[Rfam]
RNA sequence: UUGGUAUUUUCUUUGGUUAUCUAGCUGUAUGAGUGGUAAUGACGUCAUAAAGCUAGGUUACCAAGGUUAAGAACAG
Numbered sequence: 001u002u003g004g005u006a007u008u009u010u011c012u013u014u015g016g017u018u019a020u021c022u023a024g025c026u027g028u029a030u031g032a033g034u035g036g037u038a039a040u041g042a043c044g045u046c047a048u049a050a051a052g053c054u055a056g057g058u059u060a061c062c063a064a065g066g067u068u069a070a071g072a073a074c075a076g
Stems, first nucleotide, its partner, number of pairs: 001076003005072001007070002011066007019058008028049005